[Rfam]
RNA sequence: CAUCGAAGGUCCCAGCAGGGAGGUUAUCUGCUCUAUACGAGUCCUCUCUAACACAAUAAUUUUACCUUCGAAAAUAUAUUUGCCGAAUCGUAGGAUGCUCCAAAUUUCUCAUUUUGGUGAUGUCUUAAAAUCGGCUAUAUUUUA
Numbered sequence: 001c002a003u004c005g006a007a008g009g010u011c012c013c014a015g016c017a018g019g020g021a022g023g024u025u026a027u028c029u030g031c032u033c034u035a036u037a038c039g040a041g042u043c044c045u046c047u048c049u050a051a052c053a054c055a056a057u058a059a060u061u062u063u064a065c066c067u068u069c070g071a072a073a074a075u076a077u078a079u080u081u082g083c084c085g086a087a088u089c090g091u092a093g094g095a096u097g098c099u100c101c102a103a104a105u106u107u108c109u110c111a112u113u114u115u116g117g118u119g120a121u122g123u124c125u126u127a128a129a130a131u132c133g134g135c136u137a138u139a140u141u142u143u144a
Stems, first nucleotide, its partner, number of pairs: 003071007011020003026047001031041003082135005094124002097121001098119001100117005

This 144-nucleotide RNA sequence from Centaurea solstitialis belongs to the Rfam family "Small nucleolar RNA snoR145". Rfam classes the family as an H/ACA-box small nucleolar RNA. A reference for the family is Chen and Wu (2009), "Mining small RNA sequencing data: a new approach to identify small nucleolar RNAs in Arabidopsis", Nucleic Acids Res. The family's consensus secondary structure was predicted with mfold. Rfam links the family to the GO terms nucleolus and RNA processing. Lineage of the source: Eukaryota > Gunneridae > asterids > Asterales > Centaurea.